[Rfam]
RNA sequence: AGAAUUGAUAGAGGUGCAUCGUACAAUCAGUACCCAAAGUUGUUAAGGUUUACGUAAGACCGUAGCUUUGGUGAAAGGUGUAGAUGCCGAAGUCGGUCUCAAUUUACGUGGGGACAAGGCUGGUUGAACAAAAUAAGAUUUGUUUAACUGUCGCAUUUGCGGAGAGCUAUCUAUCUU
Numbered sequence: 001a002g003a004a005u006u007g008a009u010a011g012a013g014g015u016g017c018a019u020c021g022u023a024c025a026a027u028c029a030g031u032a033c034c035c036a037a038a039g040u041u042g043u044u045a046a047g048g049u050u051u052a053c054g055u056a057a058g059a060c061c062g063u064a065g066c067u068u069u070g071g072u073g074a075a076a077g078g079u080g081u082a083g084a085u086g087c088c089g090a091a092g093u094c095g096g097u098c099u100c101a102a103u104u105u106a107c108g109u110g111g112g113g114a115c116a117a118g119g120c121u122g123g124u125u126g127a128a129c130a131a132a133a134u135a136a137g138a139u140u141u142g143u144u145u146a147a148c149u150g151u152c153g154c155a156u157u158u159g160c161g162g163a164g165a166g167c168u169a170u171c172u173a174u175c176u177u
Stems, first nucleotide, its partner, number of pairs: 007171005016087005022082004034071010091121004096115005102109001122149011151162004
The family of this 177-nucleotide sequence from Desulfosporosinus sp. HMP52 is "Lysine riboswitch aptamer". Its family is annotated with lysine biosynthetic process in the Gene Ontology. It scores 86 bits against the family's covariance model.